The family of this 86-nucleotide sequence from Klebsiella sp. RIT-PI-d is "sroD RNA".
The match comes from Rfam's covariance-model search (98 bits).
On this family, see Vogel et al., Nucleic Acids Res 2003: "RNomics in Escherichia coli detects new sRNA species and indicates parallel transcriptional output in bacteria".
Taxonomically the source falls in Klebsiella (Bacteria, Pseudomonadota, Gammaproteobacteria, Enterobacterales).
The family's RNA type in Rfam is small RNA.
RNA sequence: CUGCGUGACGAAGCGCGUAGUAAUGUGGACAAUAAAGCCUGAGCCACGAGUAAGUCGCCAGACGCCGGUUAAUCCGGCGUUUUUUA
Numbered sequence: 001c002u003g004c005g006u007g008a009c010g011a012a013g014c015g016c017g018u019a020g021u022a023a024u025g026u027g028g029a030c031a032a033u034a035a036a037g038c039c040u041g042a043g044c045c046a047c048g049a050g051u052a053a054g055u056c057g058c059c060a061g062a063c064g065c066c067g068g069u070u071a072a073u074c075c076g077g078c079g080u081u082u083u084u085u086a
Stems, first nucleotide, its partner, number of pairs: 015059001016057002020038002061081008